[Rfam]
RNA sequence: GUCGUCGCGAGGCGGGGUCCGCAGGCAGUGUGCAGCGAACCCGCGACCCGAUGGACAAGAACCGGAGACGAGGCGGUACAGGUGGGACGAGCGGGCGGAUUCCGCGAAGUCCAGGGCCACUAAGGGCCUGUGCCGUAGAUCCGGCGGGGGUGCGGGGAAGGCGGUCGGAC
Numbered sequence: 001g002u003c004g005u006c007g008c009g010a011g012g013c014g015g016g017g018u019c020c021g022c023a024g025g026c027a028g029u030g031u032g033c034a035g036c037g038a039a040c041c042c043g044c045g046a047c048c049c050g051a052u053g054g055a056c057a058a059g060a061a062c063c064g065g066a067g068a069c070g071a072g073g074c075g076g077u078a079c080a081g082g083u084g085g086g087a088c089g090a091g092c093g094g095g096c097g098g099a100u101u102c103c104g105c106g107a108a109g110u111c112c113a114g115g116g117c118c119a120c121u122a123a124g125g126g127c128c129u130g131u132g133c134c135g136u137a138g139a140u141c142c143g144g145c146g147g148g149g150g151u152g153c154g155g156g157g158a159a160g161g162c163g164g165u166c167g168g169a170c
Stems, first nucleotide, its partner, number of pairs: 002015005028170002031167002035162002040156006047148004062144005073136003077132007085112004091105004
Dot-bracket structure: .(((((....)))))............((.((..((...((((((.((((...........(((((......(((.(((((((.((((..((((.......))))...)))).............))))))).)))...)))))))))..))))))....))...)).))
A member of the RNA family "Group II catalytic intron D1-D4-3", 170 nucleotides long.
Gene Ontology term of the family: Group II intron splicing.
Group II introns are found in rRNA, tRNA and mRNA of organelles in fungi, plants and protists, and also in mRNA in bacteria.
The pairing is the family consensus, mapped onto this sequence.